Small nucleolar RNA snoR100: a 113-nucleotide sequence from Juglans regia. The family's RNA type in Rfam is H/ACA-box small nucleolar RNA. The family's consensus secondary structure was predicted with WAR. Taxonomically the source falls in Juglans (Eukaryota, Tracheophyta, Mesangiospermae, rosids). It scores 111 bits against the family's covariance model.
RNA sequence: CAAUGAAGGAAGCAUGGUAAUGUGCACGGAUAUUGAAUUAUAUGGAUCAAUAUGUCUGCUCCCUCUGAUGCUUUUCCGGCUUUGAUUUGGGGGCCUGGUUGCGAUCCACAUCU
Dot-bracket structure: ...........((((......))))..................((.((.....(((.(((.................)))...))).....)).)).................